A member of the RNA family "U1 spliceosomal RNA" from Dinoponera quadriceps, 154 nucleotides long. The base pairs follow the family's consensus structure, which is taken from published work. Rfam links the family to the GO terms U1 snRNP, mRNA 5'-splice site recognition and pre-mRNA 5'-splice site binding.
RNA sequence: AUACUUACAUGGUGUAGAGGUUACCGUGAUCAUCAAAGCGGUUCCUCUAGAGUUCCAUUGCGCUACGGUCGAGUUGAUUUUUGCGAAAUCCCUAAUGUGGACAUCCCGUACGUACAAUUUUUGAUAGCGGGGACUGCGUUCGCACUGUUCCUAU
Numbered sequence: 001a002u003a004c005u006u007a008c009a010u011g012g013u014g015u016a017g018a019g020g021u022u023a024c025c026g027u028g029a030u031c032a033u034c035a036a037a038g039c040g041g042u043u044c045c046u047c048u049a050g051a052g053u054u055c056c057a058u059u060g061c062g063c064u065a066c067g068g069u070c071g072a073g074u075u076g077a078u079u080u081u082u083g084c085g086a087a088a089u090c091c092c093u094a095a096u097g098u099g100g101a102c103a104u105c106c107c108g109u110a111c112g113u114a115c116a117a118u119u120u121u122u123g124a125u126a127g128c129g130g131g132g133a134c135u136g137c138g139u140u141c142g143c144a145c146u147g148u149u150c151c152u153a154u
Stems, first nucleotide, its partner, number of pairs: 012113004016048005023042005049078001051075003055068002084108002087104001089101001091100002129152005136145001138143001